About this RNA
The family of this 135-nucleotide RNA from Galemys pyrenaicus is "small Cajal body-specific RNA 17". About the family: scaRNAs are a specific class of small nuclear RNAs which localise to the Cajal bodies and guide the modification of RNA polymerase II transcribed spliceosomal RNAs U1, U2, U4, U5 and U12. Rfam classes the family as a small Cajal body RNA. The family's consensus secondary structure is taken from published work.

RNA sequence: CCCUGGUCCCCGACGCUGCCCCCUAUGAGCCGACAAUAUUUUCCUCAUAUGAUCGGGCCCCACUGCUGGCGGUGCCGCUUGCCAGGAGCCUGAGAGGAUUAUGAAACAUGGGGAAGGGGGUCAAGGGACUUGGGG
Numbered sequence: 001c002c003c004u005g006g007u008c009c010c011c012g013a014c015g016c017u018g019c020c021c022c023c024u025a026u027g028a029g030c031c032g033a034c035a036a037u038a039u040u041u042u043c044c045u046c047a048u049a050u051g052a053u054c055g056g057g058c059c060c061c062a063c064u065g066c067u068g069g070c071g072g073u074g075c076c077g078c079u080u081g082c083c084a085g086g087a088g089c090c091u092g093a094g095a096g097g098a099u100u101a102u103g104a105a106a107c108a109u110g111g112g113g114a115a116g117g118g119g120g121u122c123a124a125g126g127g128a129c130u131u132g133g134g135g
Stems, first nucleotide, its partner, number of pairs: 001133001003132001005130006018121005053093006060086002065082002068079004